[Rfam]
RNA sequence: GGUCACGAGUUCCGACGCAAUGCCCUGGCACAGUCGGACGGCAACCCUCCAGUCGCGGCGGGGUGCUCCAGGUGAGGACCGGGCGAUGCCGAGCAGGCAUCGCAAGCGCGGCCC
Dot-bracket structure: ((((....(.((((((....((......))..)))))))(((..(((.((......))..))).))).........))))..((((((((.....))))))))...........
Numbered sequence: 001g002g003u004c005a006c007g008a009g010u011u012c013c014g015a016c017g018c019a020a021u022g023c024c025c026u027g028g029c030a031c032a033g034u035c036g037g038a039c040g041g042c043a044a045c046c047c048u049c050c051a052g053u054c055g056c057g058g059c060g061g062g063g064u065g066c067u068c069c070a071g072g073u074g075a076g077g078a079c080c081g082g083g084c085g086a087u088g089c090c091g092a093g094c095a096g097g098c099a100u101c102g103c104a105a106g107c108g109c110g111g112c113c114c
Stems, first nucleotide, its partner, number of pairs: 001080004009039001011038006021030002040067003045063003049058002083103008
Shown here is a 114-nucleotide RNA sequence, a member of the family "SAM (S-adenosyl methionine) riboswitch aptamer".
A search with the family's covariance model found it, with a score of 94 bits.
The family's consensus secondary structure is taken from published work.
The family has 40 seed sequences and 2,360 matches in Rfam 15.1.